[Rfam]
About this RNA: The record is a 145-nucleotide RNA sequence from Jaculus jaculus, which matches "Small nucleolar RNA SNORA12" in Rfam. A search with the family's covariance model found it, with a score of 125 bits. NCBI's taxonomy places the organism under Eukaryota, Eumetazoa, Theria, Dipodoidea, Jaculus. The family's consensus secondary structure was predicted with RNAalifold. Its family is annotated with nucleolus and RNA processing in the Gene Ontology. U108 belongs to the H/ACA family of snoRNAs. The sequence is predicted to guide the pseudouridylation of the U372 residue in the 28S rRNA subunit. However it has not been reported as a pseudouridylation site.
RNA sequence: UGUUGUGGUGGCUUCUUUCUGGCACAUUUGUUAAGUUUUGAAAUGGGCUUGAAUCUGCCACAUACAUUAUGUCGGAGCUGGCAAGGGUUCAAAGACUGAGAGGUCUCUUGAGCUUUUUGUGCAUCUAAGAUCUGCUCCUAUAUGU
Numbered sequence: 001u002g003u004u005g006u007g008g009u010g011g012c013u014u015c016u017u018u019c020u021g022g023c024a025c026a027u028u029u030g031u032u033a034a035g036u037u038u039u040g041a042a043a044u045g046g047g048c049u050u051g052a053a054u055c056u057g058c059c060a061c062a063u064a065c066a067u068u069a070u071g072u073c074g075g076a077g078c079u080g081g082c083a084a085g086g087g088u089u090c091a092a093a094g095a096c097u098g099a100g101a102g103g104u105c106u107c108u109u110g111a112g113c114u115u116u117u118u119g120u121g122c123a124u125c126u127a128a129g130a131u132c133u134g135c136u137c138c139u140a141u142a143u144g145u
Stems, first nucleotide, its partner, number of pairs: 005061007021049003025045005074138005080089003106130005